[Rfam]
RNA sequence: CCCUUAUCGAGAGAGGGGGAGGGACUGGCCCAAUGAACCCUCGGCAACCGGCCCGCGUUCCGUGCGCUGCGGGCACGGUGCCAAUUCCAGAAAAGGCGCGCGCGGCGGCGGCGCCUUUGAAGAUAAGGA
Numbered sequence: 001c002c003c004u005u006a007u008c009g010a011g012a013g014a015g016g017g018g019g020a021g022g023g024a025c026u027g028g029c030c031c032a033a034u035g036a037a038c039c040c041u042c043g044g045c046a047a048c049c050g051g052c053c054c055g056c057g058u059u060c061c062g063u064g065c066g067c068u069g070c071g072g073g074c075a076c077g078g079u080g081c082c083a084a085u086u087c088c089a090g091a092a093a094a095g096g097c098g099c100g101c102g103c104g105g106c107g108g109c110g111g112c113g114c115c116u117u118u119g120a121a122g123a124u125a126a127g128g129a
Stems, first nucleotide, its partner, number of pairs: 002128007013042005021031003025090004043082004048078002051074007086121001091118003095114001
Shown here is a 129-nucleotide sequence from Calditerricola satsumensis, a member of the family "SAM riboswitch aptamer (S box leader)". Rfam links the family to the GO term regulation of gene expression.